A member of the RNA family "MIR7993 microRNA precursor family" from Solanum tuberosum, 142 nucleotides long. It scores 112 bits against the family's covariance model. Rfam 15.1 lists 59 matches to the family in 6 species.
[Rfam]
RNA sequence: UUAAAUUAACCAUAUAAAAUAUGACAUCUCUUUUAAUUAUACGCAUCAACCUCAAAUAGAAAACGUCUAGAGUUUUACGACUUAUUUGAGGCGGAUGCGUAUAGUUAAAGGAGAUGACAUAUUUUAUGUGGUUAACUUAAUU
Numbered sequence: 001u002u003a004a005a006u007u008a009a010c011c012a013u014a015u016a017a018a019a020u021a022u023g024a025c026a027u028c029u030c031u032u033u034u035a036a037u038u039a040u041a042c043g044c045a046u047c048a049a050c051c052u053c054a055a056a057u058a059g060a061a062a063a064c065g066u067c068u069a070g071a072g073u074u075u076u077a078c079g080a081c082u083u084a085u086u087u088g089a090g091g092c093g094g095a096u097g098c099g100u101a102u103a104g105u106u107a108a109a110g111g112a113g114a115u116g117a118c119a120u121a122u123u124u125u126a127u128g129u130g131g132u133u134a135a136c137u138u139a140a141u142u
Base pairs, nucleotide, nucleotide: 001140002139003138004137006135007134008133009132010131011130012129013128014127015126016125017124018123019122020121021120022119023118025116028113029112030111031110032109033108034107035106036105037104038103039102040101041100042099043098044097045096046095047094050091051090052089053088054087
Dot-bracket structure: ((((.((((((((((((((((((.(..((((((((((((((((((((..(((((................................)))))..))))))))))))))))))))..).)))))))))))))))))).))))..